RNA sequence: UUCUUAUCAAGAGUGGUGGAGGAACUGGUCCUACGAAGCCCGGCAACCGGUAUGUAUCGCAUACACGGUGCUAAUUCCAGCAGAGUUUUAGCUCUGGAAGAUAAGGA
Numbered sequence: 001u002u003c004u005u006a007u008c009a010a011g012a013g014u015g016g017u018g019g020a021g022g023a024a025c026u027g028g029u030c031c032u033a034c035g036a037a038g039c040c041c042g043g044c045a046a047c048c049g050g051u052a053u054g055u056a057u058c059g060c061a062u063a064c065a066c067g068g069u070g071c072u073a074a075u076u077c078c079a080g081c082a083g084a085g086u087u088u089u090a091g092c093u094c095u096g097g098a099a100g101a102u103a104a105g106g107a
Stems, first nucleotide, its partner, number of pairs: 001107008013041001015040003021031003025080004042072004047068002050064004076099001081096006
RNA: SAM riboswitch aptamer (S box leader)